[Rfam]
RNA sequence: CACUGGCCAAUGCCCUUUUAACAUUGCACUGCUUUGUGCAUUUGGUCACUAGUAGUACAACAUAAAAAGGGCACUGGACAGAUU
Numbered sequence: 001c002a003c004u005g006g007c008c009a010a011u012g013c014c015c016u017u018u019u020a021a022c023a024u025u026g027c028a029c030u031g032c033u034u035u036g037u038g039c040a041u042u043u044g045g046u047c048a049c050u051a052g053u054a055g056u057a058c059a060a061c062a063u064a065a066a067a068a069g070g071g072c073a074c075u076g077g078a079c080a081g082a083u084u
Base pairs, nucleotide, nucleotide: 002083005079007077008076009075012072013071014070015069016068017067018066019065024060025059026058028056029055030054

Notes
mir-130 microRNA precursor family: an 84-nucleotide sequence from Geotrypetes seraphini. The family's consensus secondary structure was predicted with PFOLD. It scores 42 bits against the family's covariance model.